[Rfam]
RNA sequence: UGAUCAAGUGACGAGAAAACUGCAACAAUAUGAUGGAGAUACCUCUCCUUGUUUCCUCGUAUUUAAGUUUCCGAUGGUA
Numbered sequence: 001u002g003a004u005c006a007a008g009u010g011a012c013g014a015g016a017a018a019a020c021u022g023c024a025a026c027a028a029u030a031u032g033a034u035g036g037a038g039a040u041a042c043c044u045c046u047c048c049u050u051g052u053u054u055c056c057u058c059g060u061a062u063u064u065a066a067g068u069u070u071c072c073g074a075u076g077g078u079a
Base pairs, nucleotide, nucleotide: 001079002078004077005076006075035048036047037046038045039044
RNA: Small nucleolar RNA Z199
Organism: Musa troglodytarum